[Rfam]
Overview:
The family of this 130-nucleotide RNA sequence from Chloroceryle aenea is "Small nucleolar RNA SNORA25". The family has 30 seed sequences and 1,129 matches in Rfam 15.1. The source organism's lineage runs through Eukaryota, Vertebrata, Euteleostomi, Sauria and Chloroceryle. Gene Ontology terms of the family: nucleolus and RNA processing. The family's consensus secondary structure was predicted with RNAfold. It is annotated as an H/ACA-box small nucleolar RNA. It scores 90 bits against the family's covariance model.
RNA sequence: AGGUCACUUCAAAGAGGGUUUGCAUGGCUGAGAAACCAGCAGCUCUUAACGCGGUGACCGUAUAUUGAAAUCCUCUGCAGGAUGCCAUGGACACUUGGUGUGUCCUAUGGUCUAUUUAUGAGGAGAUAAA
Number, nucleotide and partner (000 for none) at each position: 001a000002g059003g058004u057005c056006a055007c054008u000009u000010c000011a000012a000013a000014g047015a046016g045017g044018g043019u042020u041021u000022g000023c039024a000025u000026g037027g036028c000029u000030g000031a000032g000033a000034a000035a000036c027037c026038a000039g023040c000041a020042g019043c018044u017045c016046u015047u014048a000049a000050c000051g000052c000053g000054g007055u006056g005057a004058c003059c002060g000061u000062a000063u000064a000065u000066u000067g000068a000069a000070a000071u000072c123073c122074u121075c120076u000077g000078c000079a116080g115081g000082a113083u000084g000085c000086c000087a108088u107089g106090g105091a000092c102093a101094c100095u000096u000097g000098g000099u000100g094101u093102g092103u000104c000105c090106u089107a088108u087109g000110g000111u000112c000113u082114a000115u080116u079117u000118a000119u000120g075121a074122g073123g072124a000125g000126a000127u000128a000129a000130a000